[Rfam]
Nucleotides: 057
Stems, first nucleotide, its partner, number of pairs: 018037001020035006
Number, partner (000 for none) and nucleotide at each position: 001000u002000g003000c004000a005000a006000g007000u008000a009000u010000u011000u012000u013000a014000u015000g016000a017000u018037u019000c020035a021034g022033a023032a024031g025030c026000a027000c028000c029000u030025g031024u032023u033022u034021c035020u036000u037018a038000u039000a040000c041000a042000g043000a044000u045000u046000u047000u048000g049000u050000a051000u052000u053000a054000a055000u056000c057000u

A member of the RNA family "Plastid-rps18 3UTR RNA" from Gossypium aridum, 57 nucleotides long.
From the family's description: Plastid rps18 is a non-coding RNA (ncRNA) present in plastids.
The literature on the family includes a 2023 paper in Plant Commun by Richter et al., "Retrograde signaling in plants: A critical review focusing on the GUN pathway and beyond".
It is annotated as a cis-regulatory element.
Taxonomically the source falls in Gossypium (Eukaryota, Viridiplantae, Streptophyta, Embryophyta).